[Rfam]
RNA sequence: CUUGAGAAUUUGGGCUCUGUCCAUCUCAAUUAUUGGAAUUAAUAAUUAGACAUGGACAGAGGCCAAAUUCUCAAG
Numbered sequence: 001c002u003u004g005a006g007a008a009u010u011u012g013g014g015c016u017c018u019g020u021c022c023a024u025c026u027c028a029a030u031u032a033u034u035g036g037a038a039u040u041a042a043u044a045a046u047u048a049g050a051c052a053u054g055g056a057c058a059g060a061g062g063c064c065a066a067a068u069u070c071u072c073a074a075g
Stems, first nucleotide, its partner, number of pairs: 001075013015061010026049001028047007
This 75-nucleotide RNA sequence from Glycine max belongs to the Rfam family "MIR5038 microRNA precursor family". It scores 71 bits against the family's covariance model. Taxonomically the source falls in Glycine subgen. Soja (Eukaryota, Mesangiospermae, fabids, Fabaceae).